[Rfam]
RNA sequence: GGGUUACUCCUUGGCGCUUGCGCGCUGUUUUGAUGAAGAUUCGCACCUCUAUCAAAACGGGUAACCCCGCCUCUUGGCAAGGCCUUACUGUCAGAUCAAGUCUGAACUUCUACAUAUGAUCUAAGAGGCCAGUUCAAAAACCCUGCUCAGCUCGUCUGAAGAUGUUCCAACAGAUGAUCGAGCAGCCA
Numbered sequence: 001g002g003g004u005u006a007c008u009c010c011u012u013g014g015c016g017c018u019u020g021c022g023c024g025c026u027g028u029u030u031u032g033a034u035g036a037a038g039a040u041u042c043g044c045a046c047c048u049c050u051a052u053c054a055a056a057a058c059g060g061g062u063a064a065c066c067c068c069g070c071c072u073c074u075u076g077g078c079a080a081g082g083c084c085u086u087a088c089u090g091u092c093a094g095a096u097c098a099a100g101u102c103u104g105a106a107c108u109u110c111u112a113c114a115u116a117u118g119a120u121c122u123a124a125g126a127g128g129c130c131a132g133u134u135c136a137a138a139a140a141c142c143c144u145g146c147u148c149a150g151c152u153c154g155u156c157u158g159a160a161g162a163u164g165u166u167c168c169a170a171c172a173g174a175u176g177a178u179c180g181a182g183c184a185g186c187c188a
Stems, first nucleotide, its partner, number of pairs: 001067007009060002014025004027058009037048002075149003081142002085137002090107002092104005110132002175188002178185001

Annotation:
Rfam assigns this 188-nucleotide RNA sequence from Burkholderia glumae to the family "Proteobacterial sRNA psRNA2". Rfam 15.1 lists 122 matches to the family in 36 species. A reference for the family is Gvakharia et al. (2010), "Computational prediction and transcriptional analysis of sRNAs in Nitrosomonas europaea", FEMS Microbiol Lett. The pairing is the family consensus, mapped onto this sequence.